[Rfam]
RNA: SAM riboswitch aptamer (S box leader)
RNA sequence: UUCUUAUCCAGAGAGGUGGAGGGACUGGCCCUUUGAAGCCUCGGCAACAGGCAAUUUAUUGCACUGUGCCAAUUCCAGCAAGCUGUUGCUUGAAAGAUAAGGA
Number, nucleotide and partner (000 for none) at each position: 001u103002u102003c101004u100005u099006a098007u097008c096009c000010a000011g000012a000013g042014a041015g040016g039017u038018g000019g000020a000021g031022g030023g029024a000025c078026u077027g076028g075029c023030c022031c021032u000033u000034u000035g000036a000037a000038g017039c016040c015041u014042c013043g070044g069045c068046a067047a000048c066049a065050g000051g062052c061053a060054a059055u000056u000057u000058a000059u054060u053061g052062c051063a000064c000065u049066g048067u046068g045069c044070c043071a000072a000073u000074u095075c028076c027077a026078g025079c092080a091081a090082g089083c088084u000085g000086u000087u000088g083089c082090u081091u080092g079093a000094a000095a074096g008097a007098u006099a005100a004101g003102g002103a001